[Rfam]
Overview:
Shown here is a 70-nucleotide RNA sequence, a member of the family "L2-Alphaproteobacteria ribosomal protein leader". Rfam's curators put it in the seed alignment. A reference for the family is Eckert and Weinberg (2020), "Discovery of 20 novel ribosomal leader candidates in bacteria and archaea", BMC Microbiol.
RNA sequence: GGGGACCUUCGGGGCCCUUCACCAAACCGAGGCGCCGGCAACGGUGCGCGAAGCAGACGGAAGACAGAAA
Numbered sequence: 001g002g003g004g005a006c007c008u009u010c011g012g013g014g015c016c017c018u019u020c021a022c023c024a025a026a027c028c029g030a031g032g033c034g035c036c037g038g039c040a041a042c043g044g045u046g047c048g049c050g051a052a053g054c055a056g057a058c059g060g061a062a063g064a065c066a067g068a069a070a
Stems, first nucleotide, its partner, number of pairs: 001018004006014003028050002031047001034045004